[Rfam]
RNA sequence: ACUGCGAUGAUGAGAUGAAAACACUUACGUGUUUUAUGGGCAGUGGACAAAAUCACUUGGUUUUGCCGUGAGCCCUUCUAAUUACGACUUCUCCUUCCACUGAGCACU
Numbered sequence: 001a002c003u004g005c006g007a008u009g010a011u012g013a014g015a016u017g018a019a020a021a022c023a024c025u026u027a028c029g030u031g032u033u034u035u036a037u038g039g040g041c042a043g044u045g046g047a048c049a050a051a052a053u054c055a056c057u058u059g060g061u062u063u064u065g066c067c068g069u070g071a072g073c074c075c076u077u078c079u080a081a082u083u084a085c086g087a088c089u090u091c092u093c094c095u096u097c098c099a100c101u102g103a104g105c106a107c108u
Stems, first nucleotide, its partner, number of pairs: 001108001003106003
The record is a 108-nucleotide sequence from Carnegiea gigantea, which matches "Small nucleolar RNA Z152/R70/R12/" in Rfam. Gene Ontology terms of the family: nucleolus and RNA processing. It is annotated as a C/D-box small nucleolar RNA. The literature on the family includes a 2001 paper in J Mol Biol by Barneche et al., "Identification of 66 box C/D snoRNAs in Arabidopsis thaliana: extensive gene duplications generated multiple isoforms predicting new ribosomal RNA 2'-O-methylation sites". It scores 85 bits against the family's covariance model. Taxonomically the source falls in Carnegiea (Eukaryota, Streptophytina, Mesangiospermae, eudicotyledons). Pairs were carried over by alignment from the consensus structure, which was predicted with PFOLD.